[Rfam]
SL2 RNA: a 108-nucleotide RNA from Caenorhabditis remanei. From the family's description: This family represents SL2 RNA. SL2 RNA is involved in trans splicing in lower eukaryotes. Trans-splicing is a form of RNA processing. The acquisition of a spliced leader from a SL RNA is a intra-molecular reaction which precisely joins exons derived from separately transcribed RNAs. Pairs were carried over by alignment from the consensus structure, which is taken from published work. The match comes from Rfam's covariance-model search (92 bits). Its Rfam clan is "SL clan". Rfam classes the family as a non-coding RNA gene.

RNA sequence: GGAUUUAUCCCAGUUAACCAAGGUUAGCGGUCGUUUCGAUCUUUCGAAAGAAUGUGUCGAAAAUAAAAAAUUUUGGAUAAGCUUCUUCGGGGUUUCCGGGGAGCGAAA
Number, nucleotide and partner (000 for none) at each position: 001g000002g000003a000004u000005u000006u000007a035008u000009c000010c030011c000012a000013g028014u027015u000016a025017a024018c023019c000020a000021a000022g000023g018024u017025u016026a000027g014028c013029g000030g010031u000032c000033g000034u000035u007036u000037c059038g058039a057040u056041c054042u000043u052044u051045c050046g000047a000048a000049a000050g045051a044052a043053u000054g041055u000056g040057u039058c038059g037060a000061a000062a000063a000064u000065a000066a000067a000068a000069a000070a000071u000072u000073u000074u000075g000076g000077a000078u000079a000080a000081g000082c000083u106084u105085c000086u103087u102088c101089g000090g000091g097092g096093u000094u000095u000096c092097c091098g000099g000100g000101g088102a087103g086104c000105g084106a083107a000108a000